[Rfam]
RNA: Bacteroides-1 RNA
RNA sequence: AUGCAAAUAACCUGAAACCCCUCUUGGAUAUGUGAAUACCUGAUUGGCGGUAGUUAUGUUACUCAAAACAUAGAGCAGGCUAAAAAA
Numbered sequence: 001a002u003g004c005a006a007a008u009a010a011c012c013u014g015a016a017a018c019c020c021c022u023c024u025u026g027g028a029u030a031u032g033u034g035a036a037u038a039c040c041u042g043a044u045u046g047g048c049g050g051u052a053g054u055u056a057u058g059u060u061a062c063u064c065a066a067a068a069c070a071u072a073g074a075g076c077a078g079g080c081u082a083a084a085a086a087a
Stems, first nucleotide, its partner, number of pairs: 020050002024043004029038003054073007
Dot-bracket structure: ...................((..((((.(((....))).)))).....))...(((((((......)))))))..............